[Rfam]
RNA sequence: AUGAGUGUUUGGCCAUGAGAACUGAAUUCCAUAGAUGGUAGUCACUCAGAUAGACAUCUAUGGACUCAAUUCUACUUGCCUGGCAGCUACAA
Numbered sequence: 001a002u003g004a005g006u007g008u009u010u011g012g013c014c015a016u017g018a019g020a021a022c023u024g025a026a027u028u029c030c031a032u033a034g035a036u037g038g039u040a041g042u043c044a045c046u047c048a049g050a051u052a053g054a055c056a057u058c059u060a061u062g063g064a065c066u067c068a069a070u071u072c073u074a075c076u077u078g079c080c081u082g083g084c085a086g087c088u089a090c091a092a
Stems, first nucleotide, its partner, number of pairs: 008083002011080003018073004023068003033059004
RNA: mir-146 microRNA precursor family